Annotation: Shown here is a 186-nucleotide RNA from Miscanthus lutarioriparius, a member of the family "MIR6217 microRNA precursor family". Rfam 15.1 lists 2,266 matches to the family in 13 species. Taxonomically the source falls in Miscanthus (Eukaryota, Viridiplantae, Spermatophyta, Mesangiospermae).

RNA sequence: UGUAGCCACUUUGAGUUACGCUAAUUAAUAUGUUAAUUUAUGAGAUUAUAAUAACUCCUUACUAGGUGGUUUAUUAUAACGUUAUGAUAAAUAUACCCAUGUGUUAUAGUAACCCAACUAUUGUAAAUAUGUAUUGAUAUUAUCGUAAAUUAGUAUAUAAAAUUAUCGUAAAUGGAGGUGGCUAUA
Numbered sequence: 001u002g003u004a005g006c007c008a009c010u011u012u013g014a015g016u017u018a019c020g021c022u023a024a025u026u027a028a029u030a031u032g033u034u035a036a037u038u039u040a041u042g043a044g045a046u047u048a049u050a051a052u053a054a055c056u057c058c059u060u061a062c063u064a065g066g067u068g069g070u071u072u073a074u075u076a077u078a079a080c081g082u083u084a085u086g087a088u089a090a091a092u093a094u095a096c097c098c099a100u101g102u103g104u105u106a107u108a109g110u111a112a113c114c115c116a117a118c119u120a121u122u123g124u125a126a127a128u129a130u131g132u133a134u135u136g137a138u139a140u141u142a143u144c145g146u147a148a149a150u151u152a153g154u155a156u157a158u159a160a161a162a163u164u165a166u167c168g169u170a171a172a173u174g175g176a177g178g179u180g181g182c183u184a185u186a
Base pairs, nucleotide, nucleotide: 001186002185003184004183005182006181007180008179009178010177011176012175016171017170018169019168020167022165023164024163025162026161029157030156031155032154033153034152035151036150037149038148039147040146041145044144045143046142048140049139050138053134059126060125061124062123066121067120068119069118070117071116072111073110074109075108076107077106078105079104080103081102082101086096